[Rfam]
RNA sequence: UGAUGACACUUUCUCUGGAAUCUCUGUAGUCUCUGUGAUGACUGUACUUGAACCCUUUUCCAGCUGAUGACUGUAGUGGCUUCACU
Numbered sequence: 001u002g003a004u005g006a007c008a009c010u011u012u013c014u015c016u017g018g019a020a021u022c023u024c025u026g027u028a029g030u031c032u033c034u035g036u037g038a039u040g041a042c043u044g045u046a047c048u049u050g051a052a053c054c055c056u057u058u059u060c061c062a063g064c065u066g067a068u069g070a071c072u073g074u075a076g077u078g079g080c081u082u083c084a085c086u
Stems, first nucleotide, its partner, number of pairs: 002086001004084003
Small nucleolar RNA MBII-202: an 86-nucleotide RNA from Chelydra serpentina. It is annotated as a C/D-box small nucleolar RNA. Gene Ontology terms of the family: nucleolus and RNA processing. The organism belongs to Chelydra, within Eukaryota. For this family Rfam cites "RNomics: an experimental approach that identifies 201 candidates for novel, small, non-messenger RNAs in mouse" (Huttenhofer et al., EMBO J, 2001).